[Rfam]
RNA: Acido-Lenti-1 RNA
RNA sequence: CCCAGGCCUGCGGCCUGGGCUAUCGUAUCUCCGCCCCUUCGGGGCU
Numbered sequence: 001c002c003c004a005g006g007c008c009u010g011c012g013g014c015c016u017g018g019g020c021u022a023u024c025g026u027a028u029c030u031c032c033g034c035c036c037c038u039u040c041g042g043g044g045c046u
Base pairs, nucleotide, nucleotide: 001019002018003017004016005015006014007013008012033045034044035043036042037041